[Rfam]
RNA sequence: GGGACAGGGGGGUCUUCGCCGACCGGCGGAGCCUGUCCGCAUGUCGCGUCCGACCCGUCGGACGCGACCGGUGGCUGUCGCUCGGGGGUGAACGCCG
Numbered sequence: 001g002g003g004a005c006a007g008g009g010g011g012g013u014c015u016u017c018g019c020c021g022a023c024c025g026g027c028g029g030a031g032c033c034u035g036u037c038c039g040c041a042u043g044u045c046g047c048g049u050c051c052g053a054c055c056c057g058u059c060g061g062a063c064g065c066g067a068c069c070g071g072u073g074g075c076u077g078u079c080g081c082u083c084g085g086g087g088g089u090g091a092a093c094g095c096c097g
Base pairs, nucleotide, nucleotide: 002038003037004036005035006034007033008032014031015030016029017028018027019026020025043068044067045066046065047064048063049062050061051060052059053058
This 97-nucleotide sequence from Streptomyces uncialis belongs to the Rfam family "che1 RNA". The family's RNA type in Rfam is small RNA. Lineage of the source: Bacteria > Bacillati > Actinomycetes > Streptomycetaceae > Streptomyces.